[Rfam]
Nucleotides: 121
Stems, first nucleotide, its partner, number of pairs: 028054006034041002085106009
Number, partner (000 for none) and nucleotide at each position: 001000a002000u003000a004000a005000u006000a007000u008000c009000c010000a011000u012000g013000u014000u015000a016000a017000a018000g019000c020000c021000a022000a023000a024000g025000a026000c027000a028054g029053u030052a031051g032050g033049g034041a035040c036000u037000u038000a039000u040035g041034u042000u043000u044000a045000a046000a047000u048000a049033u050032c051031c052030u053029a054028c055000c056000g057000a058000g059000g060000u061000a062000a063000g064000a065000a066000u067000u068000a069000a070000a071000g072000a073000a074000a075000c076000g077000a078000a079000a080000a081000u082000u083000c084000u085106a086105u087104c088103u089102c090101a091100c092099u093098g094000g095000c096000u097000u098093u099092a100091g101090u102089g103088g104087g105086a106085u107000u108000u109000u110000u111000u112000a113000u114000u115000u116000u117000a118000u119000g120000g121000g
Notes: The record is a 121-nucleotide RNA sequence from Peptoniphilus sp. BV3C26, which matches "Ribosomal protein L10 leader" in Rfam. By type it is a cis-regulatory leader. A reference for the family is Zengel and Lindahl (1994), "Diverse mechanisms for regulating ribosomal protein synthesis in Escherichia coli", Prog Nucleic Acid Res Mol Biol. The organism belongs to Peptoniphilus, within Bacteria. The match comes from Rfam's covariance-model search (74 bits).